A member of the RNA family "Ascomycota telomerase RNA" from Fusarium sp. AF-6, 182 nucleotides of a longer RNA. Pairs were carried over by alignment from the consensus structure.
[Rfam]
Nucleotides: 182
Base pairs, nucleotide, nucleotide: 006048010045011044012043014042015041016040053088054087055084056083057082058081060078061077068073105176106175107174108171109170111169112168113167114166115165116164130161131160132158133157134156135155141153142152143151144150
Number, partner (000 for none) and nucleotide at each position: 001000c002000c003000c004000a005000c006048c007000c008000a009000a010045a011044g012043g013000u014042g015041c016040c017000u018000a019000u020000a021000u022000a023000c024000u025000g026000g027000a028000c029000a030000g031000g032000g033000u034000c035000c036000a037000g038000a039000u040016g041015g042014c043012c044011c045010u046000a047000a048006g049000g050000g051000a052000u053088u054087c055084c056083u057082c058081g059000a060078c061077u062000c063000u064000a065000a066000c067000c068073u069000g070000a071000a072000a073068g074000g075000c076000g077061a078060g079000c080000c081058u082057g083056a084055g085000a086000u087054g088053a089000c090000a091000g092000g093000g094000u095000g096000g097000u098000u099000u100000u101000u102000a103000u104000g105176g106175a107174u108171g109170u110000c111169u112168u113167u114166u115165g116164u117000c118000c119000a120000c121000c122000c123000g124000u125000u126000c127000a128000c129000g130161u131160c132158c133157u134156c135155c136000g137000c138000a139000a140000u141153u142152c143151u144150u145000g146000c147000u148000a149000c150144a151143a152142g153141a154000u155135g156134g157133a158132g159000a160131g161130a162000u163000u164116a165115c166114a167113a168112a169111a170109a171108c172000u173000g174107g175106u176105c177000c178000u179000u180000g181000u182000u
The organism belongs to Fusarium solani species complex, within Eukaryota.